The family of this 96-nucleotide RNA sequence from Cuscuta europaea is "Plastid-rps12 3UTR RNA".

RNA sequence: GGUUUCCUUUGGUGCAAAUCCAAUUACCUUAAUUUCAGUAGAGAAGCAAUUCUCCUUUGGUAGCAAAAGGUUAUCCAUUAAGCGAGAAAAUCCUAA
Numbered sequence: 001g002g003u004u005u006c007c008u009u010u011g012g013u014g015c016a017a018a019u020c021c022a023a024u025u026a027c028c029u030u031a032a033u034u035u036c037a038g039u040a041g042a043g044a045a046g047c048a049a050u051u052c053u054c055c056u057u058u059g060g061u062a063g064c065a066a067a068a069g070g071u072u073a074u075c076c077a078u079u080a081a082g083c084g085a086g087a088a089a090a091u092c093c094u095a096a
Stems, first nucleotide, its partner, number of pairs: 009023004052086002055084001057077001059075006
Plastid rpl20 is a non-coding RNA (ncRNA) recognised in plastids. The base pairs follow the family's consensus structure, which was predicted with LocARNA.